The record is a 71-nucleotide RNA from Umbravirus pisi, which matches "Pea enation mosaic virus-2 cap-independent translation element" in Rfam.
Rfam's curators put it in the seed alignment.
RNA sequence: CGCAGGUGUCGGAGGGAUCGCCAGCCCUCAGGAUAGUGAGCUCCCGCAGAGGGAUAAGCUAUCUCCCUGCG
Numbered sequence: 001c002g003c004a005g006g007u008g009u010c011g012g013a014g015g016g017a018u019c020g021c022c023a024g025c026c027c028u029c030a031g032g033a034u035a036g037u038g039a040g041c042u043c044c045c046g047c048a049g050a051g052g053g054a055u056a057a058g059c060u061a062u063c064u065c066c067c068u069g070c071g
Stems, first nucleotide, its partner, number of pairs: 001071006012029005032063006042054004